[Rfam]
Nucleotides: 108
Base pairs, nucleotide, nucleotide: 001108002107003106004105005104006103007102008101013043014042015041016040017039021032022031023030026076027075028074029073044068045067046066047065049064050063052060072100077097078096079095080094081093082092083091084090
Number, partner (000 for none) and nucleotide at each position: 001108u002107a003106c004105u005104u006103a007102u008101c009000c010000a011000g012000a013043a014042a015041g016040a017039c018000c019000g020000a021032g022031g023030g024000a025000c026076u027075g028074g029073g030023c031022c032021c033000u034000g035000u036000g037000a038000c039017g040016u041015c042014u043013u044068g045067g046066c047065a048000a049064c050063c051000u052060g053000a054000g055000u056000a057000a058000a059000a060052c061000a062000a063050g064049g065047u066046g067045c068044c069000a070000a071000c072100u073029c074028c075027c076026a077097u078096u079095u080094u081093g082092c083091c084090c085000c086000c087000c088000a089000c090084g091083g092082g093081c094080a095079g096078a097077a098000g099000a100072a101008g102007a103006u104005a105004a106003g107002u108001g
This 108-nucleotide sequence from Hymenobacter roseosalivarius belongs to the Rfam family "SAM riboswitch aptamer (S box leader)". The literature on the family includes a 1998 paper in Mol Microbiol by Grundy and Henkin, "The S box regulon: a new global transcription termination control system for methionine and cysteine biosynthesis genes in gram-positive bacteria". The match comes from Rfam's covariance-model search (74 bits).